RNA sequence: UAGGUGCGUCGCGAUGAGGCCUCCCCCCGCGUGGCAGGUGGCUCCUGGCAUCACUUCCCCGAUGCCGGGCACACCGGAUCCACACGCGGGAGGGGACCUGAUCGAGACGCCAUGAACCG
Numbered sequence: 001u002a003g004g005u006g007c008g009u010c011g012c013g014a015u016g017a018g019g020c021c022u023c024c025c026c027c028c029g030c031g032u033g034g035c036a037g038g039u040g041g042c043u044c045c046u047g048g049c050a051u052c053a054c055u056u057c058c059c060c061g062a063u064g065c066c067g068g069g070c071a072c073a074c075c076g077g078a079u080c081c082a083c084a085c086g087c088g089g090g091a092g093g094g095g096a097c098c099u100g101a102u103c104g105a106g107a108c109g110c111c112a113u114g115a116a117c118c119g
Base pairs, nucleotide, nucleotide: 010106012104013103014102015101018098019097021095022094023093024092026090027089028088029087030086031083032082033081034080037075038074039073040072044069045068046067047066048065049064050063051062
RNA: mraW RNA